[Rfam]
RNA sequence: UCUUUAUUUCACGCGUUCUCUCACCAGUCUGAGAGGCGAGAGAGUAUGCGAAAUGAAGAGA
Numbered sequence: 001u002c003u004u005u006a007u008u009u010c011a012c013g014c015g016u017u018c019u020c021u022c023a024c025c026a027g028u029c030u031g032a033g034a035g036g037c038g039a040g041a042g043a044g045u046a047u048g049c050g051a052a053a054u055g056a057a058g059a060g061a
Stems, first nucleotide, its partner, number of pairs: 001059007010050001012048002015045003019041004
This 61-nucleotide RNA from Pristionchus pacificus belongs to the Rfam family "mir-8364 microRNA precursor family". Taxonomically the source falls in Pristionchus (Eukaryota, Opisthokonta, Ecdysozoa, Nematoda). It scores 74 bits against the family's covariance model. The family's consensus secondary structure was predicted with RNAalifold.